[Rfam]
RNA sequence: AUGUGGCACAUGGGUUUCCCUUUGUCAUCCUAUGCCUGGAAGUGAUGAAGAGGCAGGGACAGCAAAGGGAUGCUCAGUUGUCAAUUCU
Numbered sequence: 001a002u003g004u005g006g007c008a009c010a011u012g013g014g015u016u017u018c019c020c021u022u023u024g025u026c027a028u029c030c031u032a033u034g035c036c037u038g039g040a041a042g043u044g045a046u047g048a049a050g051a052g053g054c055a056g057g058g059a060c061a062g063c064a065a066a067g068g069g070a071u072g073c074u075c076a077g078u079u080g081u082c083a084a085u086u087c088u
Stems, first nucleotide, its partner, number of pairs: 017070006024063002028059004034054004
RNA: mir-204 microRNA precursor family
Organism: Leptobrachium leishanense